Description: DUF3268 RNA: a 118-nucleotide RNA sequence. Pairs were carried over by alignment from the consensus structure, which is taken from published work. It is annotated as a small RNA.
RNA sequence: GGCAGGGGCUUGCGUCCAGGCUUUCGGUACGCUGAAUAGCUAACAGCGUCAGACAUAUCCAUGAGAGGUAUGGAACCGUUACGGGAUGCGCAUUGAGCAAACCAUAAUGAUGCAAGCC
Numbered sequence: 001g002g003c004a005g006g007g008g009c010u011u012g013c014g015u016c017c018a019g020g021c022u023u024u025c026g027g028u029a030c031g032c033u034g035a036a037u038a039g040c041u042a043a044c045a046g047c048g049u050c051a052g053a054c055a056u057a058u059c060c061a062u063g064a065g066a067g068g069u070a071u072g073g074a075a076c077c078g079u080u081a082c083g084g085g086a087u088g089c090g091c092a093u094u095g096a097g098c099a100a101a102c103c104a105u106a107a108u109g110a111u112g113c114a115a116g117c118c
Base pairs, nucleotide, nucleotide: 007118008117009116010115011114012113013112014111015110016109025078026077027076028075029049030048031047032046033045034044054072055071056070057069059068060067083103084102087099088098089097
Notes
The sequence is in the family's curated seed alignment.